[Rfam]
The record is a 100-nucleotide RNA from Acetohalobium arabaticum, which matches "Pyrrolysine insertion sequence mtbB" in Rfam.
Its family is annotated with pyrrolysine incorporation in the Gene Ontology.
The literature on the family includes a 2013 paper in BMC Bioinformatics by Theil Have et al., "Effects of using coding potential, sequence conservation and mRNA structure conservation for predicting pyrroly-sine containing genes".
NCBI's taxonomy places the organism under Bacteria, Bacillati, Clostridia, Halanaerobiales, Acetohalobium arabaticum.
RNA sequence: UAGGUAGGUGUAGGUGACCCUAAUGGAAUGGUCAUCAGUCACGCAUUAGCUUCGGGCAUGGGCGGAGUACGUACUGCCGGAGACCUGGUAGCGCGCAUGC
Numbered sequence: 001u002a003g004g005u006a007g008g009u010g011u012a013g014g015u016g017a018c019c020c021u022a023a024u025g026g027a028a029u030g031g032u033c034a035u036c037a038g039u040c041a042c043g044c045a046u047u048a049g050c051u052u053c054g055g056g057c058a059u060g061g062g063c064g065g066a067g068u069a070c071g072u073a074c075u076g077c078c079g080g081a082g083a084c085c086u087g088g089u090a091g092c093g094c095g096c097a098u099g100c
Stems, first nucleotide, its partner, number of pairs: 010035002013032001015030002018026002074091004079086002